Selenocysteine insertion sequence 1: a 67-nucleotide sequence from Gadus morhua. NCBI's taxonomy places the organism under Eukaryota, Opisthokonta, Paracanthopterygii, Gadariae, Gadus. The incorporation of selenocysteine into a protein sequence is directed by an in-frame UGA codon (usually a stop codon) within the coding region of the mRNA. Selenoprotein mRNAs contain a conserved secondary structure in the 3' UTR that is required for the distinction of UGA stop from UGA selenocysteine. The selenocysteine insertion sequence (SECIS) is around 60 nt in length and adopts a hairpin structure which is sufficiently well-defined and conserved to act as a computational screen for selenoprotein genes.
RNA sequence: CUUUAUUUAAUGAAGGUCUCCCCUGAAACCAAAGCCUUGUGAGGGGGGGACCGGAUGUCUUCUAAAG
Numbered sequence: 001c002u003u004u005a006u007u008u009a010a011u012g013a014a015g016g017u018c019u020c021c022c023c024u025g026a027a028a029c030c031a032a033a034g035c036c037u038u039g040u041g042a043g044g045g046g047g048g049g050a051c052c053g054g055a056u057g058u059c060u061u062c063u064a065a066a067g
Stems, first nucleotide, its partner, number of pairs: 001067005015052010030039003